The family of this 83-nucleotide sequence from Pseudoselenomonas ruminantium is "ZMP/ZTP riboswitch aptamer (pfl RNA motif)".
[Rfam]
RNA sequence: UAGGCCAUGCAGGGCUGACGGAUUAGUGGAAAUGACCACAUGCACUGCAUGGUUAAGAUAAGCCGACCGUCUGGGCAGAGAUU
Numbered sequence: 001u002a003g004g005c006c007a008u009g010c011a012g013g014g015c016u017g018a019c020g021g022a023u024u025a026g027u028g029g030a031a032a033u034g035a036c037c038a039c040a041u042g043c044a045c046u047g048c049a050u051g052g053u054u055a056a057g058a059u060a061a062g063c064c065g066a067c068c069g070u071c072u073g074g075g076c077a078g079a080g081a082u083u
Base pairs, nucleotide, nucleotide: 003054004053005052006051007050008049009048010047011046012045015042017071018070019069020068021067026039027038028037029036062076063075064074